[Rfam]
Nucleotides: 145
Stems, first nucleotide, its partner, number of pairs: 003057007017042003021038002023035004064143005071136003079130001091122003095118006
Number, partner (000 for none) and nucleotide at each position: 001000a002000a003057g004056g005055c006054a007053a008052c009051u010000u011000u012000u013000u014000g015000c016000c017042g018041a019040g020000u021038g022037a023035a024034u025033c026032g027000a028000a029000c030000a031000u032026c033025g034024a035023u036000c037022u038021c039000u040019c041018u042017c043000u044000u045000u046000u047000u048000c049000c050000c051009a052008g053007u054006u055005g056004c057003c058000a059000a060000a061000a062000u063000c064143a065142u066141g067140u068139a069000a070000u071136g072135g073134c074000c075000g076000c077000u078000u079130g080000a081000g082000g083000u084000a085000u086000a087000a088000c089000u090000u091122g092121a093120u094000c095118g096117g097116u098115u099114g100113u101000a102000a103000a104000a105000u106000u107000u108000c109000c110000a111000a112000u113100a114099c115098a116097a117096c118095c119000g120093a121092u122091c123000g124000u125000u126000u127000a128000g129000c130079c131000u132000u133000u134073g135072c136071u137000g138000c139068u140067a141066c142065a143064u144000u145000a
Rfam assigns this 145-nucleotide RNA sequence from Eutrema salsugineum to the family "Small nucleolar RNA snoR144". The match comes from Rfam's covariance-model search (145 bits). For this family Rfam cites "Mining small RNA sequencing data: a new approach to identify small nucleolar RNAs in Arabidopsis" (Chen and Wu, Nucleic Acids Res, 2009). Pairs were carried over by alignment from the consensus structure, which was predicted with mfold. The organism belongs to Eutrema, within Eukaryota.